A member of the RNA family "mir-33 microRNA precursor family" from Drosophila pseudoobscura, 70 nucleotides long.
Gene Ontology terms of the family: gene silencing by miRNA and RISC complex.
The sequence is in the family's curated seed alignment.
RNA sequence: CGCAGGUGCAUUGUAGUCGCAUUGUCUGUCCAUCUUGAUUUCAGGCAAUACAACUGCAAUGCAAGCUCUG
Numbered sequence: 001c002g003c004a005g006g007u008g009c010a011u012u013g014u015a016g017u018c019g020c021a022u023u024g025u026c027u028g029u030c031c032a033u034c035u036u037g038a039u040u041u042c043a044g045g046c047a048a049u050a051c052a053a054c055u056g057c058a059a060u061g062c063a064a065g066c067u068c069u070g
Base pairs, nucleotide, nucleotide: 001070002069004067006066007063008062009061010060011059012058013057014056015055016054019051021049022048023047024046025045026044027043